Shown here is a 204-nucleotide RNA from Bacillus pseudomycoides, a member of the family "Group II catalytic intron D1-D4-5". The pairing is the family consensus, mapped onto this sequence. It is one of the family's seed sequences. The family has 139 seed sequences and 720 matches in Rfam 15.1. The literature on the family includes a 2001 paper in Trends Genet by Bonen and Vogel, "The ins and outs of group II introns".

RNA sequence: GAGAACUACUAUUUCGAGAAGUCAAAUGAAAGGGUAACGCCUGGAAGGGCUUCCUCUGAUACUCCGACAUGCAUGAUGCAGUGGAUAAGAACUGUAAGUGUGUGAAGCUCGGUAAAGUCGGCCGAGAGCUACCGUAAAGUAUGGAAGUACUACGAAAGUUGUCCAGAGGUGGAUGAUGUAGCCUAUAGGCCGGGAGUCUACAAA
Numbered sequence: 001g002a003g004a005a006c007u008a009c010u011a012u013u014u015c016g017a018g019a020a021g022u023c024a025a026a027u028g029a030a031a032g033g034g035u036a037a038c039g040c041c042u043g044g045a046a047g048g049g050c051u052u053c054c055u056c057u058g059a060u061a062c063u064c065c066g067a068c069a070u071g072c073a074u075g076a077u078g079c080a081g082u083g084g085a086u087a088a089g090a091a092c093u094g095u096a097a098g099u100g101u102g103u104g105a106a107g108c109u110c111g112g113u114a115a116a117g118u119c120g121g122c123c124g125a126g127a128g129c130u131a132c133c134g135u136a137a138a139g140u141a142u143g144g145a146a147g148u149a150c151u152a153c154g155a156a157a158g159u160u161g162u163c164c165a166g167a168g169g170u171g172g173a174u175g176a177u178g179u180a181g182c183c184u185a186u187a188g189g190c191c192g193g194g195a196g197u198c199u200a201c202a203a204a
Stems, first nucleotide, its partner, number of pairs: 018053006032042003054196004064112004068104007077096005119192005128182005133154003140149002158177008